[Rfam]
RNA sequence: CCGCCCGUCGCGUCUAUUGAUUAGGUAGCAUCAUGAGUGAGGCAGAGGAGAAAUAUUUUUAGAUUCGUCUAAUUUUAUUUUACUGAAGCCCCGCGAAUGGUGCUACCCAGAAACAGACAAAGUCGUAACAUGGUUUCUGUAGGUGAACCUGCAGAAGGAUCAA
Numbered sequence: 001c002c003g004c005c006c007g008u009c010g011c012g013u014c015u016a017u018u019g020a021u022u023a024g025g026u027a028g029c030a031u032c033a034u035g036a037g038u039g040a041g042g043c044a045g046a047g048g049a050g051a052a053a054u055a056u057u058u059u060u061a062g063a064u065u066c067g068u069c070u071a072a073u074u075u076u077a078u079u080u081u082a083c084u085g086a087a088g089c090c091c092c093g094c095g096a097a098u099g100g101u102g103c104u105a106c107c108c109a110g111a112a113a114c115a116g117a118c119a120a121a122g123u124c125g126u127a128a129c130a131u132g133g134u135u136u137c138u139g140u141a142g143g144u145g146a147a148c149c150u151g152c153a154g155a156a157g158g159a160u161c162a163a
Stems, first nucleotide, its partner, number of pairs: 001132001003129001006125002009122001012118004017113002021109001024107011037094003041090003047084002050081006059072004134157010
The record is a 163-nucleotide part of an RNA from Pterospora floridiensis, which matches "Eukaryotic small subunit ribosomal RNA" in Rfam. Taxonomically the source falls in Pterospora (Eukaryota, Sar, Alveolata, Gregarinasina). Its family is annotated with ribosome and structural constituent of ribosome in the Gene Ontology. Clan: SSU clan. The family's consensus secondary structure is taken from published work. For this family Rfam cites "The comparative RNA web (CRW) site: an online database of comparative sequence and structure information for ribosomal, intron, and other RNAs" (Cannone et al., BMC Bioinformatics, 2002).